This 65-nucleotide sequence belongs to the Rfam family "L31-Corynebacteriaceae ribosomal protein leader". The literature on the family includes a 2020 paper in BMC Microbiol by Eckert and Weinberg, "Discovery of 20 novel ribosomal leader candidates in bacteria and archaea". By type it is a cis-regulatory leader. The family's consensus secondary structure is taken from published work. The family is grouped with related families in Rfam's "Ribosomal Protein L31 Leader clan".
RNA sequence: ACUCAGGCACGAUCUUUACCCUUUUACAAUGUAAAGAACCGACCUGAAGUUUCAACCCUGAGGGA
Numbered sequence: 001a002c003u004c005a006g007g008c009a010c011g012a013u014c015u016u017u018a019c020c021c022u023u024u025u026a027c028a029a030u031g032u033a034a035a036g037a038a039c040c041g042a043c044c045u046g047a048a049g050u051u052u053c054a055a056c057c058c059u060g061a062g063g064g065a
Base pairs, nucleotide, nucleotide: 001050002049003048004046005045006044007043013037014036015035016034017033018032019031
Dot-bracket structure: (((((((.....(((((((...........))))))).....)))).)))...............